[Rfam]
RNA: TD-2 RNA
Organism: Treponema denticola
RNA sequence: ACCGCCACGGAUGGCGGUAGUGCCAAGCAGUAGCAAGUUUUUCGUUAGAAAAACUCGUCGUUGAAAAGUGUACACGGAGGUACGCUUUUCAACACAC
Numbered sequence: 001a002c003c004g005c006c007a008c009g010g011a012u013g014g015c016g017g018u019a020g021u022g023c024c025a026a027g028c029a030g031u032a033g034c035a036a037g038u039u040u041u042u043c044g045u046u047a048g049a050a051a052a053a054c055u056c057g058u059c060g061u062u063g064a065a066a067a068g069u070g071u072a073c074a075c076g077g078a079g080g081u082a083c084g085c086u087u088u089u090c091a092a093c094a095c096a097c
Stems, first nucleotide, its partner, number of pairs: 001018006034057001036055008060093014